[Rfam]
RNA sequence: UUAUUUGCCGAGGGGUGGCCAACCGGCCUGAGAUCCAAUUUGGGGAACCCUUAAACCUGAUCCAGAUAAUACUGGCGUAGGAACAGGCUGCAUCUCUACUA
Numbered sequence: 001u002u003a004u005u006u007g008c009c010g011a012g013g014g015g016u017g018g019c020c021a022a023c024c025g026g027c028c029u030g031a032g033a034u035c036c037a038a039u040u041u042g043g044g045g046a047a048c049c050c051u052u053a054a055a056c057c058u059g060a061u062c063c064a065g066a067u068a069a070u071a072c073u074g075g076c077g078u079a080g081g082a083a084c085a086g087g088c089u090g091c092a093u094c095u096c097u098a099c100u101a
Stems, first nucleotide, its partner, number of pairs: 007088003011051004016045001017028004035044001036042002056081004062075004

Background
This 101-nucleotide sequence from Hydrogenovibrio sp. SC-1 belongs to the Rfam family "TPP riboswitch aptamer (THI element)". Pairs were carried over by alignment from the consensus structure, which is taken from published work. Rfam describes the family as follows. Vitamin B(1) in its active form thiamin pyrophosphate (TPP) is an essential coenzyme that is synthesised by coupling of pyrimidine and thiazole moieties in bacteria. The previously detected thiamin-regulatory element, thi box was extended, resulting in a new, highly conserved RNA secondary structure, the THI element, which is widely distributed in eubacteria and also occurs in some archaea. Analysis of operon structures identified a large number of new candidate thiamin-regulated genes, mostly transporters, in various prokaryotic organisms. The THI element is a riboswitch that directly binds to TPP to regulate gene expression through a variety of mechanisms in archaea, bacteria and eukaryotes. through a variety of mechanisms in archaea, bacteria and eukaryotes. Taxonomically the source falls in Hydrogenovibrio (Bacteria, Pseudomonadati, Gammaproteobacteria, Piscirickettsiaceae).